[Rfam]
RNA sequence: ACGCUGUGAAAGACGAUGGUAGUGAGAUGGCGCAACUCUAUCUCUCUACCCCGUCUUUUCCGGUGUG
Numbered sequence: 001a002c003g004c005u006g007u008g009a010a011a012g013a014c015g016a017u018g019g020u021a022g023u024g025a026g027a028u029g030g031c032g033c034a035a036c037u038c039u040a041u042c043u044c045u046c047u048a049c050c051c052c053g054u055c056u057u058u059u060c061c062g063g064u065g066u067g
Stems, first nucleotide, its partner, number of pairs: 008059008018050002021047002024044006
Dot-bracket structure: .......((((((((..((.((.((((((.........)))))).)).)).))))))))........

A member of the RNA family "mir-71 microRNA precursor family" from Paragonimus skrjabini miyazakii, 67 nucleotides long.
On this family, see Yu et al., PLoS One 2008: "The silkworm (Bombyx mori) microRNAs and their expressions in multiple developmental stages".
Rfam links the family to the GO terms RISC complex and miRNA-mediated post-transcriptional gene silencing.